[Rfam]
RNA: Betaproteobacteria toxic small RNA
Organism: Noviherbaspirillum denitrificans
RNA sequence: UGUCUCCUCCAACUCUCCUAGAAUUGGAUUUAACCCGCUACCGCAAGGCAGCGGGUUUUUUUUU
Numbered sequence: 001u002g003u004c005u006c007c008u009c010c011a012a013c014u015c016u017c018c019u020a021g022a023a024u025u026g027g028a029u030u031u032a033a034c035c036c037g038c039u040a041c042c043g044c045a046a047g048g049c050a051g052c053g054g055g056u057u058u059u060u061u062u063u064u
Stems, first nucleotide, its partner, number of pairs: 008028005014022002032057008